[Rfam]
RNA: mir-172 microRNA precursor family
RNA sequence: UUGUUUGUAGGCGCAGCACCAUUAAGAUUCACAUGGAAAUUGAUAAAUACCCUAAAUUAGGGUUUUGAUAUGUAUAUGAGAAUCUUGAUGAUGCUGCAUCAACAAUCGA
Numbered sequence: 001u002u003g004u005u006u007g008u009a010g011g012c013g014c015a016g017c018a019c020c021a022u023u024a025a026g027a028u029u030c031a032c033a034u035g036g037a038a039a040u041u042g043a044u045a046a047a048u049a050c051c052c053u054a055a056a057u058u059a060g061g062g063u064u065u066u067g068a069u070a071u072g073u074a075u076a077u078g079a080g081a082a083u084c085u086u087g088a089u090g091a092u093g094c095u096g097c098a099u100c101a102a103c104a105a106u107c108g109a
Base pairs, nucleotide, nucleotide: 010100011099013097014096015095016094017093018092020090021089022088023087024086025085026084027083028082029081030080032078033077